[Rfam]
RNA sequence: UUCGUUUAGCACGGGCAGUACGCAUACCAGUGAGGAUUCGUCCGAGGUUGCGUUUUUGCUAGUUGAAAACUAUUAUAGUUUGACCGCUCCUGUUGGUCUUCGGAUCGGCAGGGAAUCUUUGGAACCCCUUAGAUG
Numbered sequence: 001u002u003c004g005u006u007u008a009g010c011a012c013g014g015g016c017a018g019u020a021c022g023c024a025u026a027c028c029a030g031u032g033a034g035g036a037u038u039c040g041u042c043c044g045a046g047g048u049u050g051c052g053u054u055u056u057u058g059c060u061a062g063u064u065g066a067a068a069a070c071u072a073u074u075a076u077a078g079u080u081u082g083a084c085c086g087c088u089c090c091u092g093u094u095g096g097u098c099u100u101c102g103g104a105u106c107g108g109c110a111g112g113g114a115a116u117c118u119u120u121g122g123a124a125c126c127c128c129u130u131a132g133a134u135g
Stems, first nucleotide, its partner, number of pairs: 020053005026048003034043003088113011128135001
RNA: U4 spliceosomal RNA